[Rfam]
RNA sequence: AUAAUGAUACUUCUGCACGUUCAGGCUGCCGUCGUAAAAGGACAGCGGGUGAGAUGCCCAUGA
Numbered sequence: 001a002u003a004a005u006g007a008u009a010c011u012u013c014u015g016c017a018c019g020u021u022c023a024g025g026c027u028g029c030c031g032u033c034g035u036a037a038a039a040g041g042a043c044a045g046c047g048g049g050u051g052a053g054a055u056g057c058c059c060a061u062g063a
Stems, first nucleotide, its partner, number of pairs: 012060001013024003026045003030041001032039001047059003
RNA: pemK RNA